[Rfam]
RNA sequence: UGGGCUGGCCGGGCGACCGCGUUCGUCUCCUCACGGAGGCGGCCGAGGAAGGUCCGGGCUCCACAGAGCAAGGUGGUGGGCAACACCCACCCGGGGUGACCCGCGGGAAAGUGCCACAGAAAACAGACCGCCCGCUCUCACGAGCGGGUAAGGGUGAAACGGUGGUGUAAGAGACCACCAGCGUGCCGGGUGACCGGUGCGGCUAGGUAAACCCCACCUGGAGCAAGAUCAAGAAGCCACUCCCCUUCGGAGGAAUGGUGCGCACACGUUCGAGGGCUGCUCGCCCGAGUGUGCGGGUAGAUCGCCCGAGGCUGUCGGCAACGGCAGCCCUAGAUGGAUGGUCGCCAACCGGGGCCACGCAAGGAACCCCGGCGAACAGAACCCGGCCUAUGAGCCAGCCCGUCCG
Numbered sequence: 001u002g003g004g005c006u007g008g009c010c011g012g013g014c015g016a017c018c019g020c021g022u023u024c025g026u027c028u029c030c031u032c033a034c035g036g037a038g039g040c041g042g043c044c045g046a047g048g049a050a051g052g053u054c055c056g057g058g059c060u061c062c063a064c065a066g067a068g069c070a071a072g073g074u075g076g077u078g079g080g081c082a083a084c085a086c087c088c089a090c091c092c093g094g095g096g097u098g099a100c101c102c103g104c105g106g107g108a109a110a111g112u113g114c115c116a117c118a119g120a121a122a123a124c125a126g127a128c129c130g131c132c133c134g135c136u137c138u139c140a141c142g143a144g145c146g147g148g149u150a151a152g153g154g155u156g157a158a159a160c161g162g163u164g165g166u167g168u169a170a171g172a173g174a175c176c177a178c179c180a181g182c183g184u185g186c187c188g189g190g191u192g193a194c195c196g197g198u199g200c201g202g203c204u205a206g207g208u209a210a211a212c213c214c215c216a217c218c219u220g221g222a223g224c225a226a227g228a229u230c231a232a233g234a235a236g237c238c239a240c241u242c243c244c245c246u247u248c249g250g251a252g253g254a255a256u257g258g259u260g261c262g263c264a265c266a267c268g269u270u271c272g273a274g275g276g277c278u279g280c281u282c283g284c285c286c287g288a289g290u291g292u293g294c295g296g297g298u299a300g301a302u303c304g305c306c307c308g309a310g311g312c313u314g315u316c317g318g319c320a321a322c323g324g325c326a327g328c329c330c331u332a333g334a335u336g337g338a339u340g341g342u343c344g345c346c347a348a349c350c351g352g353g354g355c356c357a358c359g360c361a362a363g364g365a366a367c368c369c370c371g372g373c374g375a376a377c378a379g380a381a382c383c384c385g386g387c388c389u390a391u392g393a394g395c396c397a398g399c400c401c402g403u404c405c406g
Stems, first nucleotide, its partner, number of pairs: 001402009011391001012346007020045002023042006050389003054386005059223004066282004071219005076090005091105001092103004106214002111212002113208003128153002130149008161179006181203001182201008227303004238293003242289001274286004310329008

Description: Shown here is a 406-nucleotide RNA from Nocardioides sp. Root151, a member of the family "Bacterial RNase P class A". The family's consensus secondary structure is taken from published work. From the family's description: Ribonuclease P (RNase P) is a ubiquitous endoribonuclease, found in archaea, bacteria and eukarya as well as chloroplasts and mitochondria.